[Rfam]
RNA sequence: GGUAUUGUUUGCCCCACGAUAAGCCCCGGAAAUCUUAUUGAGUGUCAAACAAACA
Dot-bracket structure: .....((((((...(.(((((((..........))))))).)...))))))....
Numbered sequence: 001g002g003u004a005u006u007g008u009u010u011g012c013c014c015c016a017c018g019a020u021a022a023g024c025c026c027c028g029g030a031a032a033u034c035u036u037a038u039u040g041a042g043u044g045u046c047a048a049a050c051a052a053a054c055a
Stems, first nucleotide, its partner, number of pairs: 006051006015042001017040007
Annotation:
The family of this 55-nucleotide RNA sequence from Lactiplantibacillus plantarum is "Ribosomal protein L13 leader". From the family's description: This family is a putative r-protein leader autoregulatory structure found in B. subtilis and other low-GC Gram-positive bacteria. It is located in the 5' untranslated regions of mRNAs encoding the L13-S9 (rplM-rpsI) ribosomal protein operon. It is annotated as a cis-regulatory leader. The sequence is in the family's curated seed alignment.